Notes:
This 82-nucleotide RNA from Ziziphus jujuba belongs to the Rfam family "Small nucleolar RNA Z122". For this family Rfam cites "The high diversity of snoRNAs in plants: identification and comparative study of 120 snoRNA genes from Oryza sativa" (Chen et al., Nucleic Acids Res, 2003). The family has 23 seed sequences and 822 matches in Rfam 15.1. By type it is a C/D-box small nucleolar RNA.
RNA sequence: UUUGGGAAAUGAUGUGACUACAUAAUUAUCAAAUGUAUCAGCAAUGCUGAAUUGUCUACUUGCACGCCGGUCUGAUCGCAAC
Number, nucleotide and partner (000 for none) at each position: 001u000002u081003u080004g079005g000006g077007a076008a000009a000010u000011g000012a000013u000014g000015u000016g000017a000018c000019u000020a000021c000022a000023u000024a000025a000026u000027u000028a000029u000030c000031a000032a000033a000034u000035g000036u000037a000038u000039c000040a000041g000042c000043a000044a000045u000046g000047c000048u000049g000050a000051a000052u000053u000054g000055u000056c000057u000058a000059c000060u000061u000062g000063c000064a000065c000066g000067c000068c000069g000070g000071u000072c000073u000074g000075a000076u007077c006078g000079c004080a003081a002082c000